[Rfam]
RNA sequence: UGUCACUGUUAAAAGUGCCUGCACCCAGCAGCCUUCUCCUGGUGGGAUGUUCAAAGAGCAGUGCUACACCAGUGCAGCAUUUGGCAUCCUUGGCUUUCAUUCUGCUGUGUCUGUUAAACCUGGUAUUUUGGCUGAAAAAGUC
Numbered sequence: 001u002g003u004c005a006c007u008g009u010u011a012a013a014a015g016u017g018c019c020u021g022c023a024c025c026c027a028g029c030a031g032c033c034u035u036c037u038c039c040u041g042g043u044g045g046g047a048u049g050u051u052c053a054a055a056g057a058g059c060a061g062u063g064c065u066a067c068a069c070c071a072g073u074g075c076a077g078c079a080u081u082u083g084g085c086a087u088c089c090u091u092g093g094c095u096u097u098c099a100u101u102c103u104g105c106u107g108u109g110u111c112u113g114u115u116a117a118a119c120c121u122g123g124u125a126u127u128u129u130g131g132c133u134g135a136a137a138a139a140g141u142c
Stems, first nucleotide, its partner, number of pairs: 002064001004063005019056002021050003025046002027043001029041003067131001071127003075122003083111005
Annotation:
Rfam assigns this 142-nucleotide RNA from Leptocoma aspasia to the family "Small nucleolar RNA SNORA8". The family's consensus secondary structure was predicted with RNAfold. Rfam links the family to the GO terms RNA processing and nucleolus. From the family's description: ACA8 is a member of the H/ACA class of snoRNA that guide the sites of modification of uridines to pseudouridines. Lineage of the source: Eukaryota > Sauria > Archelosauria > Nectariniidae > Leptocoma.